[Rfam]
RNA: c-di-GMP-I riboswitch aptamer
Organism: Thermanaeromonas sp. C210
RNA sequence: GCUGCCUCAGGGUAAACCUGUCGAAAGGCAGGGGCACAAAGCCAUGGGUCUAAGGCUCCCGCUGGGGGGCUAUGAUCGCCAGGCUGCCGGC
Numbered sequence: 001g002c003u004g005c006c007u008c009a010g011g012g013u014a015a016a017c018c019u020g021u022c023g024a025a026a027g028g029c030a031g032g033g034g035c036a037c038a039a040a041g042c043c044a045u046g047g048g049u050c051u052a053a054g055g056c057u058c059c060c061g062c063u064g065g066g067g068g069g070c071u072a073u074g075a076u077c078g079c080c081a082g083g084c085u086g087c088c089g090g091c
Stems, first nucleotide, its partner, number of pairs: 012037002017032006040085004045081003048076003055070006